[Rfam]
RNA sequence: UGGUAACACGAACCGGUGCUAAAGGGUCCCUACCCCGACAGGCUCUGUCAGGAGCAGGUGGGCAGGACCCUUUAGCACCGGUUCGUGUUACGAA
Numbered sequence: 001u002g003g004u005a006a007c008a009c010g011a012a013c014c015g016g017u018g019c020u021a022a023a024g025g026g027u028c029c030c031u032a033c034c035c036c037g038a039c040a041g042g043c044u045c046u047g048u049c050a051g052g053a054g055c056a057g058g059u060g061g062g063c064a065g066g067a068c069c070c071u072u073u074a075g076c077a078c079c080g081g082u083u084c085g086u087g088u089u090a091c092g093a094a
Stems, first nucleotide, its partner, number of pairs: 003091025029066002034062003039057001045051002
RNA: MIR5387 microRNA precursor family
Organism: Sorghum bicolor